The family of this 93-nucleotide sequence from Roseivivax sediminis is "Rhodo-rpoB RNA". The source organism's lineage runs through Bacteria, Pseudomonadati, Alphaproteobacteria, Roseobacteraceae and Roseivivax. A search with the family's covariance model found it, with a score of 76 bits. By type it is a cis-regulatory element.
Nucleotides: 093
Base pairs, nucleotide, nucleotide: 002042003041004040005039010031011030012029013028014027015026016025017024065093067091068090069089070087071086072085073084074083
Number, partner (000 for none) and nucleotide at each position: 001000g002042g003041g004040u005039c006000g007000g008000g009000a010031g011030g012029c013028u014027u015026c016025c017024g018000g019000u020000g021000g022000g023000a024017c025016g026015g027014a028013g029012g030011c031010c032000g033000c034000g035000c036000a037000u038000u039005g040004a041003c042002c043000g044000g045000a046000a047000c048000a049000c050000g051000c052000u053000c054000u055000c056000u057000c058000g059000g060000a061000u062000g063000a064000g065093c066000c067091c068090g069089c070087g071086g072085c073084c074083g075000g076000g077000g078000c079000c080000c081000g082000a083074c084073g085072g086071c087070c088000c089069g090068c091067g092000c093065g